This 137-nucleotide RNA from Castor canadensis belongs to the Rfam family "Small nucleolar RNA SNORA8". It scores 109 bits against the family's covariance model. Pairs were carried over by alignment from the consensus structure, which was predicted with RNAfold. From the family's description: ACA8 is a member of the H/ACA class of snoRNA that guide the sites of modification of uridines to pseudouridines. Taxonomically the source falls in Castor (Eukaryota, Metazoa, Chordata, Euarchontoglires).
[Rfam]
RNA sequence: UGCGCUGUGGUAUCUGCACUCAGCAGUUUAUUCCUGCUGGUGUGUUCAAAGGACAGUGCAUAGAAAUUCAGUACAUGGCAUCGUUGGUUUUUCUUGCCUUUGUGCAUGUUAACCUGGUAUUUAAUAUUGACACAUUA
Numbered sequence: 001u002g003c004g005c006u007g008u009g010g011u012a013u014c015u016g017c018a019c020u021c022a023g024c025a026g027u028u029u030a031u032u033c034c035u036g037c038u039g040g041u042g043u044g045u046u047c048a049a050a051g052g053a054c055a056g057u058g059c060a061u062a063g064a065a066a067u068u069c070a071g072u073a074c075a076u077g078g079c080a081u082c083g084u085u086g087g088u089u090u091u092u093c094u095u096g097c098c099u100u101u102g103u104g105c106a107u108g109u110u111a112a113c114c115u116g117g118u119a120u121u122u123a124a125u126a127u128u129g130a131c132a133c134a135u136u137a
Stems, first nucleotide, its partner, number of pairs: 002059006013052003016045004021040001022038005061126002064122004068117004078105004